[Rfam]
RNA: Small nucleolar RNA SNORA8
RNA sequence: UGCAGUGUUACAGUACCUGCACCCAGCAGCCUUCUGGUGGGAUAUUCAAAGAGCAGUGCCACACCAGUGCAGCAUUUGGAAUCCUUGGUUUUCAUUCUGCUUUGUUAAACCUGGUAUUUUUGCUGAAAAAGUC
Numbered sequence: 001u002g003c004a005g006u007g008u009u010a011c012a013g014u015a016c017c018u019g020c021a022c023c024c025a026g027c028a029g030c031c032u033u034c035u036g037g038u039g040g041g042a043u044a045u046u047c048a049a050a051g052a053g054c055a056g057u058g059c060c061a062c063a064c065c066a067g068u069g070c071a072g073c074a075u076u077u078g079g080a081a082u083c084c085u086u087g088g089u090u091u092u093c094a095u096u097c098u099g100c101u102u103u104g105u106u107a108a109a110c111c112u113g114g115u116a117u118u119u120u121u122g123c124u125g126a127a128a129a130a131g132u133c
Stems, first nucleotide, its partner, number of pairs: 002059003006055002017051002019045001021043001023041002025038001027036003062122002066118003070113003078102001080101001082099001